[Rfam]
RNA sequence: CAUUCCCUCCAUUCGGAAUGAUCCUAAUGCGAAACGCGCCGAUGGUAACGUUUGCGCGGUAAGCUCGCAUGACAACGUGGAAAAUCAGAAAGUCCGAUUCGGAUCAACUGCCAGGAUAAAAAACACUAUGAAGAGCAUAAUACGAAC
Numbered sequence: 001c002a003u004u005c006c007c008u009c010c011a012u013u014c015g016g017a018a019u020g021a022u023c024c025u026a027a028u029g030c031g032a033a034a035c036g037c038g039c040c041g042a043u044g045g046u047a048a049c050g051u052u053u054g055c056g057c058g059g060u061a062a063g064c065u066c067g068c069a070u071g072a073c074a075a076c077g078u079g080g081a082a083a084a085u086c087a088g089a090a091a092g093u094c095c096g097a098u099u100c101g102g103a104u105c106a107a108c109u110g111c112c113a114g115g116a117u118a119a120a121a122a123a124c125a126c127u128a129u130g131a132a133g134a135g136c137a138u139a140a141u142a143c144g145a146a147c
Base pairs, nucleotide, nucleotide: 002019003018004017005016006015028069029068030067031066032065033060035058036057037056038055039054041052042051043050044049083099084098085097086096101124104121108115109114129145133141
Group II catalytic intron D1-D4-7: a 147-nucleotide RNA sequence from Candidatus Methanogaster sp. Rfam describes the family as follows. Group II introns are found in rRNA, tRNA and mRNA of organelles in fungi, plants and protists, and also in mRNA in bacteria. The family has 244 seed sequences and 1,296 matches in Rfam 15.1.